[Rfam]
RNA sequence: GAGAGUUAUCUUUCAAGUUUCUCUAGCAGGGUCUCGCAUCCGAAGUCGGACGCGAGUGCCCAA
Numbered sequence: 001g002a003g004a005g006u007u008a009u010c011u012u013u014c015a016a017g018u019u020u021c022u023c024u025a026g027c028a029g030g031g032u033c034u035c036g037c038a039u040c041c042g043a044a045g046u047c048g049g050a051c052g053c054g055a056g057u058g059c060c061c062a063a
Stems, first nucleotide, its partner, number of pairs: 030060003033056005039050003
This 63-nucleotide RNA sequence from Strongylocentrotus purpuratus belongs to the Rfam family "U7 small nuclear RNA". The base pairs follow the family's consensus structure, which was predicted with PFOLD. The family has 49 seed sequences and 10,439 matches in Rfam 15.1. The organism belongs to Strongylocentrotus, within Eukaryota.